[Rfam]
RNA sequence: GCUGGCACAGUGAUGAUAAUUCUUUGCCAUUUACCCAACUGAUUUUUUUGAUGAGUAACAUCGUAUCUGACGUGCCAGC
Number, nucleotide and partner (000 for none) at each position: 001g079002c078003u077004g076005g075006c074007a073008c000009a000010g000011u000012g000013a000014u000015g000016a000017u000018a000019a000020u000021u000022c000023u000024u000025u000026g000027c000028c000029a000030u000031u000032u000033a000034c000035c000036c000037a000038a000039c000040u000041g000042a000043u000044u000045u000046u000047u000048u000049u000050g000051a000052u000053g000054a000055g000056u000057a000058a000059c000060a000061u000062c000063g000064u000065a000066u000067c000068u000069g000070a000071c000072g000073u007074g006075c005076c004077a003078g002079c001
The record is a 79-nucleotide RNA from Cairina moschata, which matches "Small nucleolar RNA SNORD87" in Rfam. Pairs were carried over by alignment from the consensus structure. Its family is annotated with RNA processing and nucleolus in the Gene Ontology.